[Rfam]
RNA sequence: UCAGACGGCCGGAUGGCUGCGCUGCGGCGAGCAAUCGCUGUGGCGAGGAAAGUCCGGGCUCCACGGAGACACGGUGCCGGUUAACGACCGGCGGGGGCGACCCCAGGGACAGUGCCACAGAGAACAGACCGCCAGUCCGGCUCGCCGGACGGGUAAGGGUGAAACGGUGGGGUAAGAGCCCACCGCGCGACCGGUAACGGAAGCGGCACGGCAAACCCCACCGGGAGCAAGACCAAAUAGGGGCGGCACGCCGGGCAACCGGCAAGCGUGUUUCCGCGCCGUCGCCCGGGUCGGUCGCGCGAGGCGUUCGGCAACGGACGUCCCAGAGGAAUGGCCAUCCAUCGCUUUCGGGCGAGGACAGAACCCGGCUUACAGGCCGUCUGACAUC
Numbered sequence: 001u002c003a004g005a006c007g008g009c010c011g012g013a014u015g016g017c018u019g020c021g022c023u024g025c026g027g028c029g030a031g032c033a034a035u036c037g038c039u040g041u042g043g044c045g046a047g048g049a050a051a052g053u054c055c056g057g058g059c060u061c062c063a064c065g066g067a068g069a070c071a072c073g074g075u076g077c078c079g080g081u082u083a084a085c086g087a088c089c090g091g092c093g094g095g096g097g098c099g100a101c102c103c104c105a106g107g108g109a110c111a112g113u114g115c116c117a118c119a120g121a122g123a124a125c126a127g128a129c130c131g132c133c134a135g136u137c138c139g140g141c142u143c144g145c146c147g148g149a150c151g152g153g154u155a156a157g158g159g160u161g162a163a164a165c166g167g168u169g170g171g172g173u174a175a176g177a178g179c180c181c182a183c184c185g186c187g188c189g190a191c192c193g194g195u196a197a198c199g200g201a202a203g204c205g206g207c208a209c210g211g212c213a214a215a216c217c218c219c220a221c222c223g224g225g226a227g228c229a230a231g232a233c234c235a236a237a238u239a240g241g242g243g244c245g246g247c248a249c250g251c252c253g254g255g256c257a258a259c260c261g262g263c264a265a266g267c268g269u270g271u272u273u274c275c276g277c278g279c280c281g282u283c284g285c286c287c288g289g290g291u292c293g294g295u296c297g298c299g300c301g302a303g304g305c306g307u308u309c310g311g312c313a314a315c316g317g318a319c320g321u322c323c324c325a326g327a328g329g330a331a332u333g334g335c336c337a338u339c340c341a342u343c344g345c346u347u348u349c350g351g352g353c354g355a356g357g358a359c360a361g362a363a364c365c366c367g368g369c370u371u372a373c374a375g376g377c378c379g380u381c382u383g384a385c386a387u388c
Stems, first nucleotide, its partner, number of pairs: 001384010011373001012339007020045009050371003054368005059227004068273002072223005077091005092106001093104004107218002112216002114212003129158002131154003135150006166184006185207001186205003191200003231296004241287006266279004303322008
Overview
The record is a 388-nucleotide RNA from Enhydrobacter aerosaccus, which matches "Bacterial RNase P class A" in Rfam. A search with the family's covariance model found it, with a score of 303 bits. Taxonomically the source falls in Enhydrobacter (Bacteria, Pseudomonadati, Pseudomonadota, Hyphomicrobiales).